[Rfam]
The record is a 92-nucleotide RNA from Saccharopolyspora gloriosae, which matches "SAM riboswitch aptamer (S box leader)" in Rfam.
RNA sequence: AAUCCAUCCCGAGCGGCUGAGAGACCUGGCUCCACGACGCCGCAGCAACCACUCCACGAGUGAGCAGGUGCUAACGCCAGGGUCGAUGGAGU
Dot-bracket structure: (.((((((....(((((...(((..[[[[)))......)))))((((.((.(((.......)))..))))))...(]]]]...))))))).)

Gene Ontology term of the family: regulation of gene expression.